[Rfam]
RNA sequence: UCAUAAAGCAUUGCACCCAGGGUCUGGUUCAUCCCGGACAUUGUACCUGGAGCUGUUUGAUUAAACAUGUUU
Numbered sequence: 001u002c003a004u005a006a007a008g009c010a011u012u013g014c015a016c017c018c019a020g021g022g023u024c025u026g027g028u029u030c031a032u033c034c035c036g037g038a039c040a041u042u043g044u045a046c047c048u049g050g051a052g053c054u055g056u057u058u059g060a061u062u063a064a065a066c067a068u069g070u071u072u
Stems, first nucleotide, its partner, number of pairs: 005056001007054003017050004022039005
RNA: U1A polyadenylation inhibition element (PIE)
Organism: Esox lucius